[Rfam]
RNA: PyrR binding site
RNA sequence: UAGACCUUUAAACUAGUCCUGCGAGGCUGGUAAGGUAAAUACGUUUUGUGCGUAGUGUUAUGCCUUUUUGUGCCUUGCAGGUGCAAAAAGGCUUUUAUU
Numbered sequence: 001u002a003g004a005c006c007u008u009u010a011a012a013c014u015a016g017u018c019c020u021g022c023g024a025g026g027c028u029g030g031u032a033a034g035g036u037a038a039a040u041a042c043g044u045u046u047u048g049u050g051c052g053u054a055g056u057g058u059u060a061u062g063c064c065u066u067u068u069u070g071u072g073c074c075u076u077g078c079a080g081g082u083g084c085a086a087a088a089a090g091g092c093u094u095u096u097a098u099u
Stems, first nucleotide, its partner, number of pairs: 004036005013030006042057004047052001060094001062092012